[Rfam]
RNA sequence: GCAUAACAGGUCUGUGGUUGAAAGUCGAUGCCAGUCGCAGGCGAAGCGAUCCACGUAACCCGUUCAAGGAACGGUGAGCAUGGUGCGGUUUAGAAGUAAGUCCUGCCGGGAAAACCGAGAGGGUGAGUCGUGAGAGGCAGUUGCCGGGUAGCAAAAACUCCAGCAGGCGGGUGUGGGGUCAAAGACCAGGUCAGCUGUUUAUGC
Numbered sequence: 001g002c003a004u005a006a007c008a009g010g011u012c013u014g015u016g017g018u019u020g021a022a023a024g025u026c027g028a029u030g031c032c033a034g035u036c037g038c039a040g041g042c043g044a045a046g047c048g049a050u051c052c053a054c055g056u057a058a059c060c061c062g063u064u065c066a067a068g069g070a071a072c073g074g075u076g077a078g079c080a081u082g083g084u085g086c087g088g089u090u091u092a093g094a095a096g097u098a099a100g101u102c103c104u105g106c107c108g109g110g111a112a113a114a115c116c117g118a119g120a121g122g123g124u125g126a127g128u129c130g131u132g133a134g135a136g137g138c139a140g141u142u143g144c145c146g147g148g149u150a151g152c153a154a155a156a157a158c159u160c161c162a163g164c165a166g167g168c169g170g171g172u173g174u175g176g177g178g179u180c181a182a183a184g185a186c187c188a189g190g191u192c193a194g195c196u197g198u199u200u201a202u203g204c
Stems, first nucleotide, its partner, number of pairs: 001204005007197003012194003015188005028174003031041001033090007050083002058075003063070002081181001102167005107117003121160004130152002136145003
RNA: raiA RNA